[Rfam]
RNA sequence: AGUCAACAAUUGAAAAUACCUCAUAUAUACUUGAGAAUAUGGCUCAAAAGUUUCUACCCAGCACCGUAAAUGACUGGACUAUGAGGGAGGAUGAGUCGCUG
Numbered sequence: 001a002g003u004c005a006a007c008a009a010u011u012g013a014a015a016a017u018a019c020c021u022c023a024u025a026u027a028u029a030c031u032u033g034a035g036a037a038u039a040u041g042g043c044u045c046a047a048a049a050g051u052u053u054c055u056a057c058c059c060a061g062c063a064c065c066g067u068a069a070a071u072g073a074c075u076g077g078a079c080u081a082u083g084a085g086g087g088a089g090g091a092u093g094a095g096u097c098g099c100u101g
Stems, first nucleotide, its partner, number of pairs: 019086007031047005058077004062072002
RNA: Purine riboswitch aptamer